[Rfam]
RNA sequence: AAAAAGGGUGUUUGCCGCUUUGAUGGCACGCGACCGGCAACGGUCGGCGGGGUAUGGUUAUCAAGACAUACCCAACACAUAAUUUUUGUGAUCGCGAAGCAGUUGGCUACCUACAUGUACCGGCGCUUCG
Numbered sequence: 001a002a003a004a005a006g007g008g009u010g011u012u013u014g015c016c017g018c019u020u021u022g023a024u025g026g027c028a029c030g031c032g033a034c035c036g037g038c039a040a041c042g043g044u045c046g047g048c049g050g051g052g053u054a055u056g057g058u059u060a061u062c063a064a065g066a067c068a069u070a071c072c073c074a075a076c077a078c079a080u081a082a083u084u085u086u087u088g089u090g091a092u093c094g095c096g097a098a099g100c101a102g103u104u105g106g107c108u109a110c111c112u113a114c115a116u117g118u119a120c121c122g123g124c125g126c127u128u129c130g
Stems, first nucleotide, its partner, number of pairs: 008078005013028005029049003032045005050073007097128004102124005108119003
This 130-nucleotide RNA sequence from Papilio machaon belongs to the Rfam family "U11 spliceosomal RNA". Gene Ontology terms of the family: pre-mRNA 5'-splice site binding, mRNA 5'-splice site recognition and U11 snRNP. A search with the family's covariance model found it, with a score of 89 bits. By type it is a spliceosomal small nuclear RNA.